DUF3800-IX RNA: a 63-nucleotide RNA. About the family: Actinobacteria, Firmicutes (1 example), Nitrospirae, Proteobacteria, Verrucomicrobia (1 example).

RNA sequence: GCUCCAAACCCGAACUGUACCUUAUAUGGGUCGCGUGCUGUAAGGCUAGGAUUUGGAAUUUUU
Number, nucleotide and partner (000 for none) at each position: 001g059002c000003u057004c056005c055006a054007a053008a052009c000010c050011c049012g000013a000014a000015c000016u035017g034018u033019a031020c030021c029022u028023u000024a000025u000026a000027u000028g022029g021030g020031u019032c000033g018034c017035g016036u000037g046038c045039u044040g000041u000042a000043a000044g039045g038046c037047u000048a000049g011050g010051a000052u008053u007054u006055g005056g004057a003058a000059u001060u000061u000062u000063u000